[Rfam]
RNA sequence: UCAGAAAAGGGCAAACCUAUUGAAAAAUAGGGACGCAAAGUCACAGAUCUAAGGAUUGGGAUACUAGGCGAAACCCGGUGUCCCGACUAUGGUGGCUGGACUACCUAAA
Numbered sequence: 001u002c003a004g005a006a007a008a009g010g011g012c013a014a015a016c017c018u019a020u021u022g023a024a025a026a027a028u029a030g031g032g033a034c035g036c037a038a039a040g041u042c043a044c045a046g047a048u049c050u051a052a053g054g055a056u057u058g059g060g061a062u063a064c065u066a067g068g069c070g071a072a073a074c075c076c077g078g079u080g081u082c083c084c085g086a087c088u089a090u091g092g093u094g095g096c097u098g099g100a101c102u103a104c105c106u107a108a109a
Stems, first nucleotide, its partner, number of pairs: 001109001003106002011036002016031006034095001039102004044098003047093003
Dot-bracket structure: (.((......((...((((((....))))))..[))..((((.((((((.........................................))).])))))))..))..)
The record is a 109-nucleotide RNA sequence from Heyndrickxia sporothermodurans, which matches "c-di-GMP-I-GGC riboswitch aptamer" in Rfam. Its family is annotated with cyclic-di-GMP binding in the Gene Ontology. Pairs were carried over by alignment from the consensus structure, which is taken from published work.